[Rfam]
RNA sequence: AUGAGUUUACGGCAUCUCUCAAAUGACGUUGGUGCGGAUGGGGUUACUCCCGCCCAGUUUCUUGCCUCUGGUCAAAGGGCAAGUGGCGAGCCUGAGU
Numbered sequence: 001a002u003g004a005g006u007u008u009a010c011g012g013c014a015u016c017u018c019u020c021a022a023a024u025g026a027c028g029u030u031g032g033u034g035c036g037g038a039u040g041g042g043g044u045u046a047c048u049c050c051c052g053c054c055c056a057g058u059u060u061c062u063u064g065c066c067u068c069u070g071g072u073c074a075a076a077g078g079g080c081a082a083g084u085g086g087c088g089a090g091c092c093u094g095a096g097u
Base pairs, nucleotide, nucleotide: 009029010028011027013025014024015023039052040051041050042049043048054071055070056069057068061083062082063081064080065079066078
RNA: wcaG RNA